[Rfam]
RNA sequence: UGGUCACAUGAUGUUUGUAUCACCACCCAUCUGAAGCAGGCUGAAUGUCAGUCUGCAUGUGCAGAAAUGUGAUUCUGAUGGCUA
Numbered sequence: 001u002g003g004u005c006a007c008a009u010g011a012u013g014u015u016u017g018u019a020u021c022a023c024c025a026c027c028c029a030u031c032u033g034a035a036g037c038a039g040g041c042u043g044a045a046u047g048u049c050a051g052u053c054u055g056c057a058u059g060u061g062c063a064g065a066a067a068u069g070u071g072a073u074u075c076u077g078a079u080g081g082c083u084a
Base pairs, nucleotide, nucleotide: 001084002083003082004081005080006079
The record is an 84-nucleotide RNA sequence from Oryza sativa, which matches "Small nucleolar RNA Z185" in Rfam. The family's RNA type in Rfam is C/D-box small nucleolar RNA. Pairs were carried over by alignment from the consensus structure, which was predicted with PFOLD. NCBI's taxonomy places the organism under Eukaryota, Streptophyta, Poaceae, Oryzinae, Oryza sativa. Rfam's curators put it in the seed alignment.